[Rfam]
Nucleotides: 136
Stems, first nucleotide, its partner, number of pairs: 004056004016043004071123004089110003
Number, partner (000 for none) and nucleotide at each position: 001000g002000u003000u004056c005055c006054c007053a008000u009000u010000u011000a012000a013000c014000u015000a016043c017042c018041a019040c020000u021000u022000u023000u024000u025000c026000a027000a028000u029000u030000u031000c032000c033000a034000g035000a036000u037000a038000a039000a040019g041018u042017g043016g044000c045000u046000a047000u048000g049000c050000u051000u052000g053007u054006g055005g056004g057000a058000u059000a060000g061000a062000g063000g064000a065000a066000a067000a068000c069000u070000u071123g072122c073121c074120a075000u076000g077000g078000u079000c080000u081000g082000a083000a084000g085000g086000a087000a088000a089110a090109g091108g092000u093000u094000g095000a096000u097000u098000g099000u100000a101000u102000c103000u104000u105000u106000u107000u108091c109090c110089u111000a112000u113000a114000u115000g116000a117000a118000a119000a120074u121073g122072g123071c124000a125000g126000a127000u128000a129000a130000a131000g132000c133000u134000u135000u136000a
The record is a 136-nucleotide RNA from Peucedramus taeniatus, which matches "Small nucleolar RNA SNORA29" in Rfam. The match comes from Rfam's covariance-model search (114 bits). Rfam 15.1 lists 960 matches to the family in 621 species. Rfam links the family to the GO terms nucleolus and RNA processing. ACA29 is a member of the H/ACA class of snoRNA that guide the sites of modification of uridines to pseudouridines. The base pairs follow the family's consensus structure, which was predicted with PFOLD. The family's RNA type in Rfam is H/ACA-box small nucleolar RNA. Clan: SNORA20 clan. The literature on the family includes a 2001 paper in EMBO J by Huttenhofer et al., "RNomics: an experimental approach that identifies 201 candidates for novel, small, non-messenger RNAs in mouse".